[Rfam]
RNA sequence: GUCCUUGUAGCUCAGUUGGAUAGAGCAUCGGUUUCCUAAACCGGGGGUCGCAGGUUCGAAUCCUGCCAAGGACG
Numbered sequence: 001g002u003c004c005u006u007g008u009a010g011c012u013c014a015g016u017u018g019g020a021u022a023g024a025g026c027a028u029c030g031g032u033u034u035c036c037u038a039a040a041c042c043g044g045g046g047g048u049c050g051c052a053g054g055u056u057c058g059a060a061u062c063c064u065g066c067c068a069a070g071g072a073c074g
Stems, first nucleotide, its partner, number of pairs: 001073007010026004028044005050066005
Shown here is a 74-nucleotide RNA sequence from Gemmatimonas aurantiaca, a member of the family "tRNA".
The family is grouped with related families in Rfam's "tRNA clan".
Pairs were carried over by alignment from the consensus structure, which is taken from published work.
It is annotated as a transfer RNA.
NCBI's taxonomy places the organism under Bacteria, Pseudomonadati, Gemmatimonadales, Gemmatimonas, Gemmatimonas aurantiaca.